[Rfam]
RNA sequence: GGUGUGCAGGCCUUCAACGGGGUGAAGCAAACUAGGCGUCAGUCGUGUUUGCUUUCAUUCUGGGUGAAAGUCCCCGGACAAUGAGGCAGUGAGUGUCACUCCGUAAGGAGUAGCUAUCAUCGUUGCGGCUGCAUGGCGAAGACUGGGGUGGUUUCUUGGUCCCACACCUUGAAUCUGCUCUCCUGAGCCAGGUCGCGUGGUGGUGGUGUUCGUCGUAGCAAAGUUAUGAAGGCAACCGCUGGCUGUCCACUUCUCGACACUAGUCCGCAGGAGCUUCGGCUCUUGUUGGUCGCGUGGCCAGGAUUGGGUAGCCGUGGUCAACUCAACGGGGCUUAUUCUCUUGCUUCACAC
Dot-bracket structure: .(((((...((((((..(.(((...........(.(((.....))).)..........))).)....[[[.[[[[.........((((.....)))).((((....)))).(.(..((((((...((((....((((.................................................)))).))))..)))))).).)....................)))))).(((((..........................................................................))))).........]]]]]]]............)))))
RNA: RNase MRP